U2 spliceosomal RNA: a 190-nucleotide RNA from Octopus sinensis.
The match comes from Rfam's covariance-model search (55 bits).
About the family: U2 is a small nuclear RNA (snRNA) component of the spliceosome (involved in pre-mRNA splicing).
The family's consensus secondary structure is taken from published work.
By type it is a spliceosomal small nuclear RNA.
RNA sequence: AUAACGAGUCGUUGUUUACAAUUGUCUAGCAUUGAAUAAAUUUCUUCUCAGCUUAAUAUCUGAUCUGGUCCCUUUUGGGGGCUAUCGAUAUUAAACUAAUUUUUAUAACAAAGGAAACAGUUAGGCUUGCUUUGCCAUUGUUGCAGGUUAGCCUGGUAUUGCAGGACUUCUGGGAUUCAACCCCUAUUCU
Numbered sequence: 001a002u003a004a005c006g007a008g009u010c011g012u013u014g015u016u017u018a019c020a021a022u023u024g025u026c027u028a029g030c031a032u033u034g035a036a037u038a039a040a041u042u043u044c045u046u047c048u049c050a051g052c053u054u055a056a057u058a059u060c061u062g063a064u065c066u067g068g069u070c071c072c073u074u075u076u077g078g079g080g081g082c083u084a085u086c087g088a089u090a091u092u093a094a095a096c097u098a099a100u101u102u103u104u105a106u107a108a109c110a111a112a113g114g115a116a117a118c119a120g121u122u123a124g125g126c127u128u129g130c131u132u133u134g135c136c137a138u139u140g141u142u143g144c145a146g147g148u149u150a151g152c153c154u155g156g157u158a159u160u161g162c163a164g165g166a167c168u169u170c171u172g173g174g175a176u177u178c179a180a181c182c183c184c185u186a187u188u189c190u
Base pairs, nucleotide, nucleotide: 009024011022012021013020014019048063049062050061051060067083068082069081070080071079072078073077107142108141109140110139111138113136114135123132124131125130146182147181148180149179152174153173154172155171156170